A member of the RNA family "Small Cajal body specific RNA 21" from Cricetulus griseus, 137 nucleotides long. About the family: scaRNAs are a specific class of small nuclear RNAs which localise to the Cajal bodies and guide the modification of RNA polymerase II transcribed spliceosomal RNAs U1, U2, U4, U5 and U12. ACA68 (SCARNA21) is a member of the H/ACA class of snoRNAs that guide the sites of modification of uridines to pseudouridines. Rfam 15.1 lists 278 matches to the family in 138 species.

[Rfam]
RNA sequence: AGGCUUGAUUUCCUGGGAUGUGGGCUCAGCCUGCCCCCACUUCCCCUCAGCAGAGCCUAGAACAAAGGGGCCAGGCCUCCUCUCUCAUAGGAGGUUUGAGGAAGGAGCCUCACCCAGGCUAGCCUGGCCUCACAUUU
Number, nucleotide and partner (000 for none) at each position: 001a000002g057003g056004c055005u054006u053007g000008a000009u000010u000011u000012c000013c000014u000015g045016g044017g043018a042019u000020g040021u039022g038023g037024g036025c000026u000027c000028a000029g000030c000031c000032u000033g000034c000035c000036c024037c023038c022039a021040c020041u000042u018043c017044c016045c015046c000047u000048c000049a000050g000051c000052a000053g006054a005055g004056c003057c002058u000059a000060g000061a000062a000063c000064a000065a000066a000067g131068g130069g129070g128071c127072c000073a125074g124075g123076c000077c000078u000079c118080c117081u116082c000083u000084c000085u000086c000087a000088u000089a110090g109091g108092a000093g000094g000095u000096u000097u000098g000099a000100g000101g000102a000103a000104g000105g000106a000107g000108c091109c090110u089111c000112a000113c000114c000115c000116a081117g080118g079119c000120u000121a000122g000123c075124c074125u073126g000127g071128c070129c069130u068131c067132a000133c000134a000135u000136u000137u000